[Rfam]
RNA sequence: UUUGUUCACUCUCCCUCAAGGGCUUCUGGCUUAAAAUGCCUUACUCUUUGGUUUGUGUUAGUGCCAGAGGUCUUUCGAGUGAGAGUGGAUAA
Numbered sequence: 001u002u003u004g005u006u007c008a009c010u011c012u013c014c015c016u017c018a019a020g021g022g023c024u025u026c027u028g029g030c031u032u033a034a035a036a037u038g039c040c041u042u043a044c045u046c047u048u049u050g051g052u053u054u055g056u057g058u059u060a061g062u063g064c065c066a067g068a069g070g071u072c073u074u075u076c077g078a079g080u081g082a083g084a085g086u087g088g089a090u091a092a
Base pairs, nucleotide, nucleotide: 006088007087008086009085010084011083012082013081015079017077018075019074020073021072022071023070024069025068026067027066028065029064030063
RNA: MIR473 microRNA precursor family
Organism: Nicotiana tabacum